A member of the RNA family "UnaL2 LINE 3' element" from Muraenolepis orangiensis, 54 nucleotides long. It scores 72 bits against the family's covariance model. The source organism's lineage runs through Eukaryota, Eumetazoa, Deuterostomia, Actinopteri and Muraenolepis. About the family: The eel long interspersed element (LINE) UnaL2 and its partner short interspersed element (SINE) share a conserved 3' tail containing a stem-loop that is critical for their retrotransposition. Presumably, the first step of retrotransposition is the recognition of their 3' tails by UnaL2-encoded reverse transcriptase. For this family Rfam cites "Solution structure of an RNA stem-loop derived from the 3' conserved region of eel LINE UnaL2" (Baba et al., RNA, 2004).
RNA sequence: UGAACACACAAUUGUAAGUCGCUUUGGAUAAAAGCGUCUGCUAAAUGACUGAUG
Numbered sequence: 001u002g003a004a005c006a007c008a009c010a011a012u013u014g015u016a017a018g019u020c021g022c023u024u025u026g027g028a029u030a031a032a033a034g035c036g037u038c039u040g041c042u043a044a045a046u047g048a049c050u051g052a053u054g
Base pairs, nucleotide, nucleotide: 013043014041015040016039020036021035022034023033024032025031